[Rfam]
RNA sequence: CUAUUGAAGGUCUGUGGUUGAAAGUCCAUGCCAGUCGCAGGCAAAAGGACCCACGUAAGAUAGUUAAAAUAACUAUUGAUCAUGGUGCGGCUUAGAAGUAAGACCUGCCGGUAAAGCCGAGAGGGGUAGUAGUGAAAGUAAUCCUUAGCGAACCCUCCAGCAGGCGAGUGUGGGGUAAAAAACCAGGUCAGCUUCAAGUA
Numbered sequence: 001c002u003a004u005u006g007a008a009g010g011u012c013u014g015u016g017g018u019u020g021a022a023a024g025u026c027c028a029u030g031c032c033a034g035u036c037g038c039a040g041g042c043a044a045a046a047g048g049a050c051c052c053a054c055g056u057a058a059g060a061u062a063g064u065u066a067a068a069a070u071a072a073c074u075a076u077u078g079a080u081c082a083u084g085g086u087g088c089g090g091c092u093u094a095g096a097a098g099u100a101a102g103a104c105c106u107g108c109c110g111g112u113a114a115a116g117c118c119g120a121g122a123g124g125g126g127u128a129g130u131a132g133u134g135a136a137a138g139u140a141a142u143c144c145u146u147a148g149c150g151a152a153c154c155c156u157c158c159a160g161c162a163g164g165c166g167a168g169u170g171u172g173g174g175g176u177a178a179a180a181a182a183c184c185a186g187g188u189c190a191g192c193u194u195c196a197a198g199u200a
Stems, first nucleotide, its partner, number of pairs: 002200004006195004012191003015185005028171003031041001033092007050085002055080001058077002064071001083178001104164005109119003123157004132149002136145001138143001
Description
The family of this 200-nucleotide RNA from Alkaliphilus pronyensis is "raiA RNA". The base pairs follow the family's consensus structure, which is taken from published work. Rfam classes the family as a riboswitch. It scores 184 bits against the family's covariance model.